[Rfam]
RNA sequence: GGCGUAAAGAGCUCGUAGGCGGCUUGUUGCGUCGAUCGUGAAAUUCUGCAGCUCAACUGUGGGUUGGCGGUCGAUACGGGCAGGCUUGAGUUCGGUAGGGGAGACUGGAAUUCCUGGUGUAGCGGUGAAAUGCGCAGAUAUCAGGAGGAACACCGGUGGCGAAGGCGGGUCUCUGGGCCGAUACUGACGCUGAGGAGCGAAAGCAUGGGGAGCGAACAGGAUUAGAUACCCUGGUAGUCCAUGCUGUAAACGUUGGGCGCUAGGUGUGGGGACCCUUCCCGGGUUUCUGUGCCGUAGCUAACGCAUUAAGCGCCCCGCCUGGGGAGUACGGCCGCAAGGCUAAAACUCAAAGGAAU
Numbered sequence: 001g002g003c004g005u006a007a008a009g010a011g012c013u014c015g016u017a018g019g020c021g022g023c024u025u026g027u028u029g030c031g032u033c034g035a036u037c038g039u040g041a042a043a044u045u046c047u048g049c050a051g052c053u054c055a056a057c058u059g060u061g062g063g064u065u066g067g068c069g070g071u072c073g074a075u076a077c078g079g080g081c082a083g084g085c086u087u088g089a090g091u092u093c094g095g096u097a098g099g100g101g102a103g104a105c106u107g108g109a110a111u112u113c114c115u116g117g118u119g120u121a122g123c124g125g126u127g128a129a130a131u132g133c134g135c136a137g138a139u140a141u142c143a144g145g146a147g148g149a150a151c152a153c154c155g156g157u158g159g160c161g162a163a164g165g166c167g168g169g170u171c172u173c174u175g176g177g178c179c180g181a182u183a184c185u186g187a188c189g190c191u192g193a194g195g196a197g198c199g200a201a202a203g204c205a206u207g208g209g210g211a212g213c214g215a216a217c218a219g220g221a222u223u224a225g226a227u228a229c230c231c232u233g234g235u236a237g238u239c240c241a242u243g244c245u246g247u248a249a250a251c252g253u254u255g256g257g258c259g260c261u262a263g264g265u266g267u268g269g270g271g272a273c274c275c276u277u278c279c280c281g282g283g284u285u286u287c288u289g290u291g292c293c294g295u296a297g298c299u300a301a302c303g304c305a306u307u308a309a310g311c312g313c314c315c316c317g318c319c320u321g322g323g324g325a326g327u328a329c330g331g332c333c334g335c336a337a338g339g340c341u342a343a344a345a346c347u348c349a350a351a352g353g354a355a356u
Base pairs, nucleotide, nucleotide: 001319002318003317009316011198012197013196014195016192018191019190020189022085023084024083025082026081027080028079030078031077032074033073034072035071036070037069038068039067045063046062047061048060049059050058051057089185090184091183092181093180094179095178096177100174101173102172103171104170105169106168107151111147112146113145114144115143116142117141118140122133123132124131159166160165203244204243205242206241207240208239212238213237217233218232219231220230255315256314257313258312259311260310263293264292265291266290267289268288269287270286271285272284273283274282297304298303321348322347323346330341331340332339333338
The record is a 356-nucleotide part of an RNA from Natronosporangium hydrolyticum, which matches "Bacterial small subunit ribosomal RNA" in Rfam. The organism belongs to Natronosporangium, within Bacteria. The family's consensus secondary structure is taken from published work. Its family is annotated with structural constituent of ribosome and ribosome in the Gene Ontology.